[Rfam]
RNA sequence: UGAGCCCGCUAUGCAGUCGCUGUUCCCGUCAUUGUACGGGGAGGGAGGAAAGUCCGGGCUCCACAGGGCGGAGUGCCAGGUAACGCCUGGGCGGCGCGAGCCGACGGAAAGUGCAGCAGAAAGGAAACCGCCUAAGCGGCCCACGGGCCGCCGGCAAGGUUGAAAAGGUGCGGUAAGAGCGCACCGCGUGGCUGGCAACAGUCCACGGCGACGGUAAACCCCACUCGGAGCAAGGCCAAAUAGGGGUCCAGAGGUGUGGCCCGCACCGGACCCGGGUAGGCUGCUUGAGGUUCGCGGUGACGCGGAUCCCAGAGGAAUGACUGCACACGACAGAACCCGGCUUACAGGCGGACUCGAACA
Numbered sequence: 001u002g003a004g005c006c007c008g009c010u011a012u013g014c015a016g017u018c019g020c021u022g023u024u025c026c027c028g029u030c031a032u033u034g035u036a037c038g039g040g041g042a043g044g045g046a047g048g049a050a051a052g053u054c055c056g057g058g059c060u061c062c063a064c065a066g067g068g069c070g071g072a073g074u075g076c077c078a079g080g081u082a083a084c085g086c087c088u089g090g091g092c093g094g095c096g097c098g099a100g101c102c103g104a105c106g107g108a109a110a111g112u113g114c115a116g117c118a119g120a121a122a123g124g125a126a127a128c129c130g131c132c133u134a135a136g137c138g139g140c141c142c143a144c145g146g147g148c149c150g151c152c153g154g155c156a157a158g159g160u161u162g163a164a165a166a167g168g169u170g171c172g173g174u175a176a177g178a179g180c181g182c183a184c185c186g187c188g189u190g191g192c193u194g195g196c197a198a199c200a201g202u203c204c205a206c207g208g209c210g211a212c213g214g215u216a217a218a219c220c221c222c223a224c225u226c227g228g229a230g231c232a233a234g235g236c237c238a239a240a241u242a243g244g245g246g247u248c249c250a251g252a253g254g255u256g257u258g259g260c261c262c263g264c265a266c267c268g269g270a271c272c273c274g275g276g277u278a279g280g281c282u283g284c285u286u287g288a289g290g291u292u293c294g295c296g297g298u299g300a301c302g303c304g305g306a307u308c309c310c311a312g313a314g315g316a317a318u319g320a321c322u323g324c325a326c327a328c329g330a331c332a333g334a335a336c337c338c339g340g341c342u343u344a345c346a347g348g349c350g351g352a353c354u355c356g357a358a359c360a
Stems, first nucleotide, its partner, number of pairs: 001356004006351005012325007020045002023042006050343003054340005059230004066262004071226005076090005091105001092103004106221002111219002113215002128159002130155003136151006167185006186209001187207005192201003234282004244273006253267005289308008
Notes
Shown here is a 360-nucleotide sequence from Halovibrio salipaludis, a member of the family "Bacterial RNase P class A". The family's RNA type in Rfam is ribozyme. The family's consensus secondary structure is taken from published work. From the family's description: Ribonuclease P (RNase P) is a ubiquitous endoribonuclease, found in archaea, bacteria and eukarya as well as chloroplasts and mitochondria. The match comes from Rfam's covariance-model search (312 bits).